[Rfam]
RNA sequence: GUAGAAGUUGCAUCUACAAAUGGAUAAUACUUUUAUAUUAGUGUAUACGAUUUCGUGAAAAUAAAGGAGCACUACUAAACUUCUUGAUACAAGAAGUUUAGUAGUGCUCCUUUAUU
Numbered sequence: 001g002u003a004g005a006a007g008u009u010g011c012a013u014c015u016a017c018a019a020a021u022g023g024a025u026a027a028u029a030c031u032u033u034u035a036u037a038u039u040a041g042u043g044u045a046u047a048c049g050a051u052u053u054c055g056u057g058a059a060a061a062u063a064a065a066g067g068a069g070c071a072c073u074a075c076u077a078a079a080c081u082u083c084u085u086g087a088u089a090c091a092a093g094a095a096g097u098u099u100a101g102u103a104g105u106g107c108u109c110c111u112u113u114a115u116u
Base pairs, nucleotide, nucleotide: 009024011022012021013020063113064112065111066110067109068108069107070106071105072104073103074102075101077099078098079097081095082094083093084092085091
Plastid-psbA-1 3UTR RNA: a 116-nucleotide RNA sequence. Rfam's curators write: Plastid psbA-1 is a non-coding RNA (ncRNA) present in plastids. Rfam's curators put it in the seed alignment.